RNA sequence: AACUUGUCAGUGAUGAUUAUGUUAAAAGCAAUGGGAAUCUCUCUGAAAAAGAAUGAAAGAUGACUUUGCUCUGAUGCAGUU
Numbered sequence: 001a002a003c004u005u006g007u008c009a010g011u012g013a014u015g016a017u018u019a020u021g022u023u024a025a026a027a028g029c030a031a032u033g034g035g036a037a038u039c040u041c042u043c044u045g046a047a048a049a050a051g052a053a054u055g056a057a058a059g060a061u062g063a064c065u066u067u068g069c070u071c072u073g074a075u076g077c078a079g080u081u
Stems, first nucleotide, its partner, number of pairs: 001081003005078003
Dot-bracket structure: (((.(((....................................................................))))))
This 81-nucleotide sequence from Nothobranchius furzeri belongs to the Rfam family "Small nucleolar RNA SNORD79".
Rfam links the family to the GO terms RNA processing and nucleolus.
Its Rfam clan is "SNORD74 clan".
The literature on the family includes a 2002 paper in Mol Cell Biol by Galardi et al., "Purified box C/D snoRNPs are able to reproduce site-specific 2'-O-methylation of target RNA in vitro".
Rfam 15.1 lists 784 matches to the family in 651 species.
The source organism's lineage runs through Eukaryota, Vertebrata, Euteleostomi, Euteleosteomorpha and Nothobranchius.
Rfam classes the family as a C/D-box small nucleolar RNA.